[Rfam]
RNA: Mason-Pfizer monkey virus packaging signal
Organism: Macaca fascicularis
RNA sequence: UGGCUCGAACAGGGACCCGAAACGAGGGACUCCGUGAGGAAGAGGACGCCAAAGGACGGUCGACCGCUAACGAAGACAAAAGGAGUCAAACUCUUCCGAUCACCAGGGAACCUGCCACGCCAGGAUCGAAGGUAAGUGGACGCGUCCGAAAUGGGACAAGAAUUAAGCCAACAUCAAAUAUAUGUAGGACAAUUAAAAGAGGCUUUAAAGAUACGAGGAGUAAAGGUUAAAGGUAAUUAUUUGUUUAAAUUUUUUGAUUUUGUAAAAGACACUCAGGCCCAAAUGCAAUAUGACCCU
Numbered sequence: 001u002g003g004c005u006c007g008a009a010c011a012g013g014g015a016c017c018c019g020a021a022a023c024g025a026g027g028g029a030c031u032c033c034g035u036g037a038g039g040a041a042g043a044g045g046a047c048g049c050c051a052a053a054g055g056a057c058g059g060u061c062g063a064c065c066g067c068u069a070a071c072g073a074a075g076a077c078a079a080a081a082g083g084a085g086u087c088a089a090a091c092u093c094u095u096c097c098g099a100u101c102a103c104c105a106g107g108g109a110a111c112c113u114g115c116c117a118c119g120c121c122a123g124g125a126u127c128g129a130a131g132g133u134a135a136g137u138g139g140a141c142g143c144g145u146c147c148g149a150a151a152u153g154g155g156a157c158a159a160g161a162a163u164u165a166a167g168c169c170a171a172c173a174u175c176a177a178a179u180a181u182a183u184g185u186a187g188g189a190c191a192a193u194u195a196a197a198a199g200a201g202g203c204u205u206u207a208a209a210g211a212u213a214c215g216a217g218g219a220g221u222a223a224a225g226g227u228u229a230a231a232g233g234u235a236a237u238u239a240u241u242u243g244u245u246u247a248a249a250u251u252u253u254u255u256g257a258u259u260u261u262g263u264a265a266a267a268g269a270c271a272c273u274c275a276g277g278c279c280c281a282a283a284u285g286c287a288a289u290a291u292g293a294c295c296c297u
Stems, first nucleotide, its partner, number of pairs: 005027002012023001033045001035043001090133003094130002100125001101123001103119001106116002142157001145155004164207003167203003214256008224242004229237001266297001268295001